[Rfam]
RNA sequence: ACUUAGGGAAAAAAACGUCACACAUAUACCGGCACAGUCAUCUGGGUGCCCGCUUCCUGAAUCAGGGAAAGGGUUGAUGUCUGGGGUGUAUGGAGGCCUAAC
Numbered sequence: 001a002c003u004u005a006g007g008g009a010a011a012a013a014a015a016c017g018u019c020a021c022a023c024a025u026a027u028a029c030c031g032g033c034a035c036a037g038u039c040a041u042c043u044g045g046g047u048g049c050c051c052g053c054u055u056c057c058u059g060a061a062u063c064a065g066g067g068a069a070a071g072g073g074u075u076g077a078u079g080u081c082u083g084g085g086g087u088g089u090a091u092g093g094a095g096g097c098c099u100a101a102c
Stems, first nucleotide, its partner, number of pairs: 023092008035083003039079004048074004
Shown here is a 102-nucleotide RNA from Marinospirillum celere, a member of the family "t44 RNA".